The record is a 78-nucleotide RNA sequence from Raphanus sativus, which matches "Small nucleolar RNA snoR124" in Rfam. The family's consensus secondary structure was predicted with mfold. Rfam 15.1 lists 25 matches to the family in 14 species.
[Rfam]
RNA sequence: AACCAAUGAUGGAAAUUCAAAUAAUCAUCAGAUCUGAUGUGCAUAAACAUAUGUGAUUACAAUCUUGAUGCUGAGGUU
Number, nucleotide and partner (000 for none) at each position: 001a078002a077003c076004c075005a000006a000007u000008g000009a000010u000011g000012g000013a000014a000015a000016u000017u000018c000019a000020a000021a000022u000023a000024a000025u000026c000027a000028u000029c000030a000031g000032a000033u000034c000035u000036g000037a000038u000039g000040u000041g000042c000043a000044u000045a000046a000047a000048c000049a000050u000051a000052u000053g000054u000055g000056a000057u000058u000059a000060c000061a000062a000063u000064c000065u000066u000067g000068a000069u000070g000071c000072u000073g000074a000075g004076g003077u002078u001